[Rfam]
RNA sequence: CGAAUCCGCGCGGGAGAGUCCCGGCCAUGUGCCUGCCGCACCGCGGCACGCCGCAUGCCGGGCGCCGAAGGAGCAAGUUCCUCCCUUGAAUCUCUCAGGCCCCGUACCGCGCAGGGUGA
Numbered sequence: 001c002g003a004a005u006c007c008g009c010g011c012g013g014g015a016g017a018g019u020c021c022c023g024g025c026c027a028u029g030u031g032c033c034u035g036c037c038g039c040a041c042c043g044c045g046g047c048a049c050g051c052c053g054c055a056u057g058c059c060g061g062g063c064g065c066c067g068a069a070g071g072a073g074c075a076a077g078u079u080c081c082u083c084c085c086u087u088g089a090a091u092c093u094c095u096c097a098g099g100c101c102c103c104g105u106a107c108c109g110c111g112c113a114g115g116g117u118g119a
Stems, first nucleotide, its partner, number of pairs: 006114001008112006020062006064100003067096002071094003077087001